[Rfam]
RNA sequence: UACCCCAUGGAAUGCUCAGGUCCGCCGCAUCUCCUGGGUCCCGUGGGGGGCCGGUCGGCUUCAUGCAAUGACGGUUUCCUCGUACCGUCGCAUCAAGCCGGCCGGCCAUUUU
Numbered sequence: 001u002a003c004c005c006c007a008u009g010g011a012a013u014g015c016u017c018a019g020g021u022c023c024g025c026c027g028c029a030u031c032u033c034c035u036g037g038g039u040c041c042c043g044u045g046g047g048g049g050g051c052c053g054g055u056c057g058g059c060u061u062c063a064u065g066c067a068a069u070g071a072c073g074g075u076u077u078c079c080u081c082g083u084a085c086c087g088u089c090g091c092a093u094c095a096a097g098c099c100g101g102c103c104g105g106c107c108a109u110u111u112u
Stems, first nucleotide, its partner, number of pairs: 003048008015038006049107011
Shown here is a 112-nucleotide RNA from Aurantimonas aggregata, a member of the family "EcpR1". The match comes from Rfam's covariance-model search (95 bits). Rfam links the family to the GO terms mRNA binding, negative regulation of cell cycle and regulation of translation in response to stress. Pairs were carried over by alignment from the consensus structure, which was predicted with WAR. The family's RNA type in Rfam is small RNA. Rfam describes the family as follows. Perviously named SmelC291, SmrC10, or Sra33.